[Rfam]
RNA: mir-27 microRNA precursor family
Organism: Xenopus laevis
RNA sequence: GAGAGGCUCAGGGCUUAGCUGUAUUGUGAGCACUGUUACUCUCGCACCUGUUCACAGUGGCUAAGUUCCGCCCCUCUC
Numbered sequence: 001g002a003g004a005g006g007c008u009c010a011g012g013g014c015u016u017a018g019c020u021g022u023a024u025u026g027u028g029a030g031c032a033c034u035g036u037u038a039c040u041c042u043c044g045c046a047c048c049u050g051u052u053c054a055c056a057g058u059g060g061c062u063a064a065g066u067u068c069c070g071c072c073c074c075u076c077u078c
Stems, first nucleotide, its partner, number of pairs: 011068010026055007